[Rfam]
RNA: Small nucleolar RNA Z247
RNA sequence: CCCCUAGAUGAUGAAGAAUUGGUCUCCUACAUACUGACCGAACUCGAUAUGGAUUUUAAUCCUAUUGUGUCUGCGGUCCUUGCUCGCGUUGAACCGAUCUCCAUCGGUGAGCUCUACACCCAAUUGCUGGCCUUCGAGC
Number, nucleotide and partner (000 for none) at each position: 001c000002c000003c000004c138005u137006a000007g135008a134009u000010g000011a000012u000013g000014a000015a000016g000017a000018a000019u000020u000021g000022g000023u000024c000025u000026c000027c000028u000029a000030c000031a000032u000033a000034c000035u000036g000037a000038c000039c000040g000041a000042a000043c000044u000045c000046g000047a000048u000049a000050u000051g000052g000053a000054u000055u000056u000057u000058a000059a000060u000061c000062c000063u000064a000065u000066u000067g000068u000069g000070u000071c000072u000073g000074c000075g000076g000077u000078c000079c000080u000081u000082g000083c000084u000085c000086g000087c000088g000089u000090u000091g000092a000093a108094c107095c106096g105097a104098u103099c000100u000101c000102c000103a098104u097105c096106g095107g094108u093109g000110a000111g000112c000113u000114c000115u000116a000117c000118a000119c000120c000121c000122a000123a000124u000125u000126g000127c000128u000129g000130g000131c000132c000133u000134u008135c007136g000137a005138g004139c000